[Rfam]
RNA sequence: AGUUAACAUCAGGAGUGGUUUCAUAGUUGAAACCCGCCAACCGAGCCCAGAUAAAUCAUGGUCACGGUGGUUAGAGCCUUAAACGCUAGAUGUGCCUAGGAAAAUAGGAAACAUAAAG
Numbered sequence: 001a002g003u004u005a006a007c008a009u010c011a012g013g014a015g016u017g018g019u020u021u022c023a024u025a026g027u028u029g030a031a032a033c034c035c036g037c038c039a040a041c042c043g044a045g046c047c048c049a050g051a052u053a054a055a056u057c058a059u060g061g062u063c064a065c066g067g068u069g070g071u072u073a074g075a076g077c078c079u080u081a082a083a084c085g086c087u088a089g090a091u092g093u094g095c096c097u098a099g100g101a102a103a104a105u106a107g108g109a110a111a112c113a114u115a116a117a118g
Stems, first nucleotide, its partner, number of pairs: 006093005015035001017034007036071003041067003045062002095108004
SAM-I/IV (S-adenosyl methionine) riboswitch aptamer: a 118-nucleotide RNA.